[Rfam]
RNA sequence: CUUCAGCGAGCCGAGCAACAACGGCUGUGAGCGGUUCUGGCCGUAGGUGGCCAGGAGCGCCUGGGCCUC
Numbered sequence: 001c002u003u004c005a006g007c008g009a010g011c012c013g014a015g016c017a018a019c020a021a022c023g024g025c026u027g028u029g030a031g032c033g034g035u036u037c038u039g040g041c042c043g044u045a046g047g048u049g050g051c052c053a054g055g056a057g058c059g060c061c062u063g064g065g066c067c068u069c
Stems, first nucleotide, its partner, number of pairs: 014026003032059002037054003041050003

This 69-nucleotide sequence from Streptosporangium saharense belongs to the Rfam family "ASpks TB sRNA". Taxonomically the source falls in Streptosporangium (Bacteria, Bacillati, Actinomycetota, Streptosporangiales). A search with the family's covariance model found it, with a score of 66 bits. The family's consensus secondary structure is taken from published work.